[Rfam]
Notes
Shown here is a 112-nucleotide RNA from Streptomyces hoynatensis, a member of the family "Streptomyces-metK RNA". It scores 58 bits against the family's covariance model. The base pairs follow the family's consensus structure, which is taken from published work. The source organism's lineage runs through Bacteria, Actinomycetota, Actinomycetes, Kitasatosporales and Streptomyces.
RNA sequence: AUGGGACCGCCACCGUCCAUGCCUGCGGUGAUCCGGAUACACUGACGCGGACCGCACCGGCCGCCGGGGCGGUCGCAAGCAUUCAGCCAGCAGCCGCUGCAACCCCAGGGAG
Numbered sequence: 001a002u003g004g005g006a007c008c009g010c011c012a013c014c015g016u017c018c019a020u021g022c023c024u025g026c027g028g029u030g031a032u033c034c035g036g037a038u039a040c041a042c043u044g045a046c047g048c049g050g051a052c053c054g055c056a057c058c059g060g061c062c063g064c065c066g067g068g069g070c071g072g073u074c075g076c077a078a079g080c081a082u083u084c085a086g087c088c089a090g091c092a093g094c095c096g097c098u099g100c101a102a103c104c105c106c107a108g109g110g111a112g
Stems, first nucleotide, its partner, number of pairs: 050074006057067004088099004